[Rfam]
RNA sequence: CUGCGCAGCCGGGGAGUUAGCGGUGCCCUGAACCUGCAAUCCGCUAUAGCAGGGGUGAUGCCAAUCUGAGGCUCGUCUUUUUGUGGAGCUGCCCUUUAUAAGUGGCGUUGACGUUUGGGUCUUACGCAAUAGGUCUCUGUGAACCGUGUCAGAUCAGGAAUGAAGCAGCACUAAGCAGAAUCGCCUGUGUGCCGUGAGGGUGCCUGGACUGAGUUAACUGUAGAGGUAACGUCCAUGGGAGCUUGUCGAAGUGCGGCGCGCAA
Numbered sequence: 001c002u003g004c005g006c007a008g009c010c011g012g013g014g015a016g017u018u019a020g021c022g023g024u025g026c027c028c029u030g031a032a033c034c035u036g037c038a039a040u041c042c043g044c045u046a047u048a049g050c051a052g053g054g055g056u057g058a059u060g061c062c063a064a065u066c067u068g069a070g071g072c073u074c075g076u077c078u079u080u081u082u083g084u085g086g087a088g089c090u091g092c093c094c095u096u097u098a099u100a101a102g103u104g105g106c107g108u109u110g111a112c113g114u115u116u117g118g119g120u121c122u123u124a125c126g127c128a129a130u131a132g133g134u135c136u137c138u139g140u141g142a143a144c145c146g147u148g149u150c151a152g153a154u155c156a157g158g159a160a161u162g163a164a165g166c167a168g169c170a171c172u173a174a175g176c177a178g179a180a181u182c183g184c185c186u187g188u189g190u191g192c193c194g195u196g197a198g199g200g201u202g203c204c205u206g207g208a209c210u211g212a213g214u215u216a217a218c219u220g221u222a223g224a225g226g227u228a229a230c231g232u233c234c235a236u237g238g239g240a241g242c243u244u245g246u247c248g249a250a251g252u253g254c255g256g257c258g259c260g261c262a263a
Base pairs, nucleotide, nucleotide: 002262003261004260005259006258008056009055010054011029012028013027014026016024017023018022033053034052035051036050037049061256062255066251067250070247071246072245078241079240080239081238082237083236084235085234086233087232090228091227094225095224096223097222098221099220102218103217104215105214106213113209114208115207116206117205118204119203120202121198122197123196124195125194126193127189128188130187131186132185133184134183136179137178138177139176140175146171147170148169149168154163155162156161
RNA: Bacterial large signal recognition particle RNA
Organism: Blautia hydrogenotrophica